[Rfam]
RNA sequence: ACGCUUUAGAUAUUGAACUGUUCUGUCUUCUGUCACUCUCUGACAGAGAACAAUUUGUUCUUUGACAGAGAGUGACAAAACAGAAAACAGUGCAAUAGCUAAAGCAUC
Numbered sequence: 001a002c003g004c005u006u007u008a009g010a011u012a013u014u015g016a017a018c019u020g021u022u023c024u025g026u027c028u029u030c031u032g033u034c035a036c037u038c039u040c041u042g043a044c045a046g047a048g049a050a051c052a053a054u055u056u057g058u059u060c061u062u063u064g065a066c067a068g069a070g071a072g073u074g075a076c077a078a079a080a081c082a083g084a085a086a087a088c089a090g091u092g093c094a095a096u097a098g099c100u101a102a103a104g105c106a107u108c
Stems, first nucleotide, its partner, number of pairs: 001107001003105004011097005017091006024084001026082001028080001029069007049059004
This 108-nucleotide sequence from Plutella xylostella belongs to the Rfam family "mir-8517 microRNA precursor family". Gene Ontology terms of the family: miRNA-mediated post-transcriptional gene silencing and RISC complex. Pairs were carried over by alignment from the consensus structure, which was predicted with RNAalifold. Taxonomically the source falls in Plutella (Eukaryota, Protostomia, Mandibulata, Pancrustacea).